[Rfam]
RNA sequence: CUCGGUCCUCGGUGGUGGACUGCGGGCACGCCCCGCUGUCCUCGAUCGAAGACCGGC
Numbered sequence: 001c002u003c004g005g006u007c008c009u010c011g012g013u014g015g016u017g018g019a020c021u022g023c024g025g026g027c028a029c030g031c032c033c034c035g036c037u038g039u040c041c042u043c044g045a046u047c048g049a050a051g052a053c054c055g056g057c
Base pairs, nucleotide, nucleotide: 002056003055004054005053006052007051009049010048011047012046013045017041018040019039020038022036023035024034025033026032